[Rfam]
The record is an 85-nucleotide RNA sequence from Lipotes vexillifer, which matches "mir-877 microRNA precursor family" in Rfam. Rfam links the family to the GO terms miRNA-mediated post-transcriptional gene silencing and RISC complex.
RNA sequence: GUAGAGGAGAUGGCGCAGGGGACACGGGCUAAGACUGGGGGCUCCUGGGACCUCACAGCAUGUGUCCUCUUUUCCCUCUUCCCAG
Numbered sequence: 001g002u003a004g005a006g007g008a009g010a011u012g013g014c015g016c017a018g019g020g021g022a023c024a025c026g027g028g029c030u031a032a033g034a035c036u037g038g039g040g041g042c043u044c045c046u047g048g049g050a051c052c053u054c055a056c057a058g059c060a061u062g063u064g065u066c067c068u069c070u071u072u073u074c075c076c077u078c079u080u081c082c083c084a085g
Stems, first nucleotide, its partner, number of pairs: 004081006012075002015072001017070010028059001036057002038054004042049002
Dot-bracket structure: ...((((((..((.(.((((((((((.(.......((((((((....)).)))).)).).)))))))))).).))))))))....